[Rfam]
RNA: Pseudomonadales-1 RNA
RNA sequence: CCUGUUAUCUGACCAAUAACAGAAUGCACCACAGCGUAAAAUCAUCUGAUUGGGUGAGUUGGUCGCACCGCCAUUUGACGAACGAACGCCAAGCCUAAGCCGUCUUUGUGCAUUAAGUGGGUAAAGGUUGGUUAGUAGCGGUUUCCCCCACGACAAGGGGU
Numbered sequence: 001c002c003u004g005u006u007a008u009c010u011g012a013c014c015a016a017u018a019a020c021a022g023a024a025u026g027c028a029c030c031a032c033a034g035c036g037u038a039a040a041a042u043c044a045u046c047u048g049a050u051u052g053g054g055u056g057a058g059u060u061g062g063u064c065g066c067a068c069c070g071c072c073a074u075u076u077g078a079c080g081a082a083c084g085a086a087c088g089c090c091a092a093g094c095c096u097a098a099g100c101c102g103u104c105u106u107u108g109u110g111c112a113u114u115a116a117g118u119g120g121g122u123a124a125a126g127g128u129u130g131g132u133u134a135g136u137a138g139c140g141g142u143u144u145c146c147c148c149c150a151c152g153a154c155a156a157g158g159g160g161u
Base pairs, nucleotide, nucleotide: 002022003021004020005019006018007017008016011064012063013062014061025112026111027110028109029108054071055070056069060065083140084139088132089131090130091129092128094127095126096125099122100121101120104117105116106115145160146159147158148157